[Rfam]
RNA: Guanidine-II riboswitch aptamer (mini-ykkC)
Organism: Poecilia reticulata
RNA sequence: CCUGCAGGACGACCUGCAGGACUGAAGGUCAUCCUGGAGGACGACCUUC
Numbered sequence: 001c002c003u004g005c006a007g008g009a010c011g012a013c014c015u016g017c018a019g020g021a022c023u024g025a026a027g028g029u030c031a032u033c034c035u036g037g038a039g040g041a042c043g044a045c046c047u048u049c
Stems, first nucleotide, its partner, number of pairs: 001020008036049005